[Rfam]
RNA sequence: GGGGAGAUACUCAAGCGGCCAACGAGGACAGACUGUAACUCUGUUGUUUUUAACUUCGUAGGUUCGAAUCCUACUCUCCCCA
Numbered sequence: 001g002g003g004g005a006g007a008u009a010c011u012c013a014a015g016c017g018g019c020c021a022a023c024g025a026g027g028a029c030a031g032a033c034u035g036u037a038a039c040u041c042u043g044u045u046g047u048u049u050u051u052a053a054c055u056u057c058g059u060a061g062g063u064u065c066g067a068a069u070c071c072u073a074c075u076c077u078c079c080c081c082a
Base pairs, nucleotide, nucleotide: 001081002080003079004078005077006076007075010026011025012024028044029043030042031041032040058074059073060072061071062070
Dot-bracket structure: (((((((..(((...........))).(((((.......))))).............(((((.......)))))))))))).